[Rfam]
RNA sequence: CUUCCUCAGCCUUACUCCAGGGGCUUUCUGUAGAGUGCCCUGGCAUUGCCUGAGGAUAGAUUGAAAGUAUGCUCAUUUCCCUCCCCAGUGAGAUUCUCGAUAUCCUCUGGGGCCUACAAUUUGAGCAAACAUU
Dot-bracket structure: ..(((((((.(.....(((((((((((....))))).))))))....).))))))).............(((.((.......((((((.(.((.........)).))))))).........)).)))......

The record is a 133-nucleotide RNA from Ceuthmochares aereus, which matches "Small nucleolar RNA SNORA49" in Rfam. The family's RNA type in Rfam is H/ACA-box small nucleolar RNA.